[Rfam]
RNA sequence: UAAAAUCUAUUUUUCAAUCGCUGUAUCUAAUCGUCAUUAGGACUUCUCCCAUCAGCCUCGGUGAAUAGCCGGGGUUUUU
Numbered sequence: 001u002a003a004a005a006u007c008u009a010u011u012u013u014u015c016a017a018u019c020g021c022u023g024u025a026u027c028u029a030a031u032c033g034u035c036a037u038u039a040g041g042a043c044u045u046c047u048c049c050c051a052u053c054a055g056c057c058u059c060g061g062u063g064a065a066u067a068g069c070c071g072g073g074g075u076u077u078u079u
Base pairs, nucleotide, nucleotide: 055075056074057073058072059071060070061069062068
RNA: Photosynthesis regulatory RNA1